[Rfam]
RNA sequence: AAAUCUGGUUUCCUUCAAAACGCAAAAAACUUUCGCCUUUUCUAAAAUUUCCGUGAGGGGAGCAACUCAAAGAGUCUUAAUAAUUUUUAUUGGGGCCCCUUGUGGGCUGU
Numbered sequence: 001a002a003a004u005c006u007g008g009u010u011u012c013c014u015u016c017a018a019a020a021c022g023c024a025a026a027a028a029a030c031u032u033u034c035g036c037c038u039u040u041u042c043u044a045a046a047a048u049u050u051c052c053g054u055g056a057g058g059g060g061a062g063c064a065a066c067u068c069a070a071a072g073a074g075u076c077u078u079a080a081u082a083a084u085u086u087u088u089a090u091u092g093g094g095g096c097c098c099c100u101u102g103u104g105g106g107c108u109g110u
Stems, first nucleotide, its partner, number of pairs: 004073003008063010026050003031046003092110001094108004
Shown here is a 110-nucleotide RNA from Chionoecetes opilio, a member of the family "U5 spliceosomal RNA".
Gene Ontology terms of the family: spliceosomal tri-snRNP complex assembly and U5 snRNP.
The base pairs follow the family's consensus structure, which is taken from published work.
Lineage of the source: Eukaryota > Communostraca > Brachyura > Majoidea > Chionoecetes.
From the family's description: U5 RNA is a component of both types of known spliceosome. The precise function of this molecule is unknown, though it is known that the 5' loop is required for splice site selection and p220 binding, and that both the 3' stem-loop and the Sm site are important for Sm protein binding and cap methylation.